[Rfam]
RNA sequence: GGUGACGGCAUCUAGGGUUCCGUCCGAUCCCGCCAAUGCGGGGUAGGAGCUGGUCCGAGAGGUGCAAGCCGGGGUUCUUUGCCCGGUGACACGGCGGGACAAAAUCCCGGGAGGC
Numbered sequence: 001g002g003u004g005a006c007g008g009c010a011u012c013u014a015g016g017g018u019u020c021c022g023u024c025c026g027a028u029c030c031c032g033c034c035a036a037u038g039c040g041g042g043g044u045a046g047g048a049g050c051u052g053g054u055c056c057g058a059g060a061g062g063u064g065c066a067a068g069c070c071g072g073g074g075u076u077c078u079u080u081g082c083c084c085g086g087u088g089a090c091a092c093g094g095c096g097g098g099a100c101a102a103a104a105u106c107c108c109g110g111g112a113g114g115c
Stems, first nucleotide, its partner, number of pairs: 008065005015056002020053002022050001023048003027044007068087006090110001092113001096108003

A member of the RNA family "Guanidine-I riboswitch aptamer" from Georhizobium profundi, 115 nucleotides long.
Taxonomically the source falls in Georhizobium (Bacteria, Pseudomonadati, Pseudomonadota, Hyphomicrobiales).